A member of the RNA family "Archaeal large subunit ribosomal RNA" from an uncultured Nitrososphaerota archaeon, 404 nucleotides of a longer RNA.

Nucleotides: 404
Base pairs, nucleotide, nucleotide: 016034017033018032019031020030021029035401036400037399038398043381044380045379046378049361050360054079055078056077057076058075059074063072064071086357087356088355090123091122095117096116097115098114099113100112101110102109103108127144128143129142130141131140147353148352149351150350151349152348153347181333182332183331194319195318196317197316198315199314200313201312204308205307206306207305208304210227211226212225213224214223232281233280234279235278242272243271244270245269252262253261254260293297367376368375382396383395384394385393
Number, partner (000 for none) and nucleotide at each position: 001000g002000g003000u004000a005000g006000u007000a008000a009000c010000a011000g012000c013000c014000u015000a016034g017033c018032c019031g020030g021029g022000u023000u024000a025000a026000a027000a028000c029021c030020c031019c032018g033017g034016c035401c036400g037399c038398c039000g040000g041000a042000a043381g044380g045379g046378c047000c048000a049361g050360g051000u052000u053000u054079u055078c056077u057076u058075g059074g060000c061000g062000a063072c064071g065000c066000g067000c068000a069000g070000u071064c072063g073000g074059c075058c076057a077056a078055g079054a080000g081000u082000u083000a084000g085000c086357c087356g088355g089000u090123c091122c092000u093000a094000a095117g096116g097115a098114u099113g100112c101110c102109c103108c104000g105000a106000a107000a108103g109102g110101g111000u112100g113099c114098g115097u116096c117095c118000g119000a120000a121000u122091g123090g124000g125000a126000a127144g128143c129142c130141g131140g132000u133000u134000a135000a136000u137000a138000u139000u140131c141130c142129g143128g144127c145000g146000c147353c148352g149351c150350g151349g152348u153347g154000u155000c156000u157000c158000c159000g160000u161000g162000c163000g164000c165000c166000c167000c168000u169000c170000g171000u172000g173000g174000g175000c176000g177000c178000g179000c180000a181333u182332c183331u184000c185000a186000u187000c188000u189000c190000g191000u192000c193000g194319c195318c196317u197316c198315c199314g200313g201312a202000u203000a204308g205307g206306g207305g208304g209000a210227g211226u212225g213224g214223g215000g216000u217000c218000g219000c220000c221000g222000c223214c224213c225212c226211a227210u228000c229000u230000a231000a232281c233280u234279g235278u236000c237000c238000g239000a240000g241000c242272u243271c244270g245269g246000a247000g248000g249000a250000g251000u252262g253261c254260c255000g256000u257000a258000a259000u260254g261253g262252c263000g264000a265000g266000a267000a268000c269245c270244c271243g272242a273000g274000c275000g276000a277000g278235g279234c280233a281232g282000g283000a284000a285000u286000g287000g288000c289000c290000c291000g292000c293297c294000u295000u296000a297293g298000c299000g300000g301000g302000u303000u304208c305207c306206c307205u308204c309000g310000a311000u312201u313200c314199c315198g316197g317196g318195g319194g320000a321000c322000c323000a324000u325000g326000a327000a328000a329000g330000c331183g332182g333181g334000a335000u336000g337000g338000g339000a340000g341000a342000g343000g344000a345000g346000u347153c348152a349151c350150c351149g352148c353147g354000a355088c356087c357086g358000u359000a360050c361049c362000g363000a364000g365000a366000a367376c368375c369000g370000a371000c372000a373000c374000u375368g376367g377000u378046g379045c380044c381043c382396u383395g384394g385393c386000u387000g388000u389000g390000a391000a392000g393385g394384c395383u396382a397000a398038g399037g400036c401035g402000u403000g404000u